[Rfam]
RNA sequence: UACCAAAUAUUGAAAUGUGCUUAUAUAUAUCCGUAAUCUGGUCGGACGUUUCUACCAACUACCCUAAUAGUUGACUAUGAGCCAUCGCAAAGACCCC
Dot-bracket structure: ..................(((((((....((((.........)))).........((((((......))))))..)))))))...............

Rfam assigns this 97-nucleotide sequence from Eubacterium aggregans to the family "Purine riboswitch aptamer". From the family's description: Riboswitches are metabolite binding domains within certain messenger RNAs that serve as precision sensors for their corresponding targets. The family's consensus secondary structure is taken from published work. The organism belongs to Eubacterium, within Bacteria. Rfam links the family to the GO term purine nucleobase biosynthetic process.